Source information:
Shown here is a 71-nucleotide RNA from Vibrio cholerae, a member of the family "ToxT 5' UTR thermometer". Controls temperature-dependant translation of toxT, facilitating V. cholerae virulance. At human body temperature, the thermometer structure opens and to allow transcriptional activator protein ToxT translation. It is one of the family's seed sequences. Gene Ontology terms of the family: regulation of translation and response to temperature stimulus. A reference for the family is Weber et al. (2014), "RNA thermometer controls temperature-dependent virulence factor expression in Vibrio cholerae", Proc Natl Acad Sci U S A. NCBI's taxonomy places the organism under Bacteria, Pseudomonadota, Vibrionales, Vibrionaceae, Vibrio.
Nucleotides: 071
Stems, first nucleotide, its partner, number of pairs: 001063002004060005009054006020039007
Number, partner (000 for none) and nucleotide at each position: 001063u002062c003000g004060a005059u006058u007057u008056u009054a010053a011052g012051a013050u014049a015000a016000c017000u018000u019000u020039a021038c022037g023036u024035g025034g026033a027000u028000g029000g030000c031000u032000c033026u034025c035024u036023g037022c038021g039020u040000u041000u042000a043000u044000u045000u046000a047000u048000a049014u050013a051012u052011c053010u054009u055000c056008a057007g058006a059005g060004u061000a062002g063001a064000a065000c066000g067000c068000a069000a070000u071000g